A member of the RNA family "Alphaproteobacteria transfer-messenger RNA" from Hyphococcus luteus, 365 nucleotides long. NCBI's taxonomy places the organism under Bacteria, Pseudomonadota, Parvularculales, Parvularculaceae, Hyphococcus.

[Rfam]
RNA sequence: GCUCUUUAAAUUUUCACCCGUCGCGCCUAUAUUCGAAGGGCCCGCGCAAGCGGGCUAUGGCGAUAAAUGACCCGUGCAAUAACCGUAUCGGACCCGGGGGCGGUACCCGGCGGCUCCACCAAAACCCCUCUCUCGCGGGAGGCUUUGACGGGGCCGAAAUAGGAUCGACGAGCGUCUAAAGACGGUGUUUUCGCCCGGUUUGCCUCCGUUAUUUGGCUAAAACUGAAUAGUUGCCAACGACAACUACUCGGAAGAACUCGCUCUCGCUGCAUAACGCGGCUGAGCAGUUCGCUUGACUGAAGUCCUGACGCCCUUCCAAGCGUCAGGCGGGGCCCCCCGGCGCCUGGCAACAGAAGCCGGGGACU
Numbered sequence: 001g002c003u004c005u006u007u008a009a010a011u012u013u014u015c016a017c018c019c020g021u022c023g024c025g026c027c028u029a030u031a032u033u034c035g036a037a038g039g040g041c042c043c044g045c046g047c048a049a050g051c052g053g054g055c056u057a058u059g060g061c062g063a064u065a066a067a068u069g070a071c072c073c074g075u076g077c078a079a080u081a082a083c084c085g086u087a088u089c090g091g092a093c094c095c096g097g098g099g100g101c102g103g104u105a106c107c108c109g110g111c112g113g114c115u116c117c118a119c120c121a122a123a124a125c126c127c128c129u130c131u132c133u134c135g136c137g138g139g140a141g142g143c144u145u146u147g148a149c150g151g152g153g154c155c156g157a158a159a160u161a162g163g164a165u166c167g168a169c170g171a172g173c174g175u176c177u178a179a180a181g182a183c184g185g186u187g188u189u190u191u192c193g194c195c196c197g198g199u200u201u202g203c204c205u206c207c208g209u210u211a212u213u214u215g216g217c218u219a220a221a222a223c224u225g226a227a228u229a230g231u232u233g234c235c236a237a238c239g240a241c242a243a244c245u246a247c248u249c250g251g252a253a254g255a256a257c258u259c260g261c262u263c264u265c266g267c268u269g270c271a272u273a274a275c276g277c278g279g280c281u282g283a284g285c286a287g288u289u290c291g292c293u294u295g296a297c298u299g300a301a302g303u304c305c306u307g308a309c310g311c312c313c314u315u316c317c318a319a320g321c322g323u324c325a326g327g328c329g330g331g332g333c334c335c336c337c338c339g340g341c342g343c344c345u346g347g348c349a350a351c352a353g354a355a356g357c358c359g360g361g362g363a364c365u
Stems, first nucleotide, its partner, number of pairs: 040055005059195005069188001072185004084174003088171003094110005111156007196208003201219002203215001330345004336361006
It is annotated as a non-coding RNA gene.